Shown here is a 60-nucleotide RNA from Chelonia mydas, a member of the family "Ma3 gene ribosomal frameshift signal". A reference for the family is Wills et al. (2006), "A functional -1 ribosomal frameshift signal in the human paraneoplastic Ma3 gene", J Biol Chem. A search with the family's covariance model found it, with a score of 36 bits. The family's consensus secondary structure is taken from published work. Rfam links the family to the GO term translational frameshifting.
[Rfam]
RNA sequence: GGGAAAAGCCAAUCGGGCUUGGGGGAGGAGCAACCCAAGGCCCUUAAUUUCCAAGGCUCC
Numbered sequence: 001g002g003g004a005a006a007a008g009c010c011a012a013u014c015g016g017g018c019u020u021g022g023g024g025g026a027g028g029a030g031c032a033a034c035c036c037a038a039g040g041c042c043c044u045u046a047a048u049u050u051c052c053a054a055g056g057c058u059c060c
Base pairs, nucleotide, nucleotide: 015043016042017041018040019039020038022036023035024034028059029058030057031056
It is annotated as a frameshift element.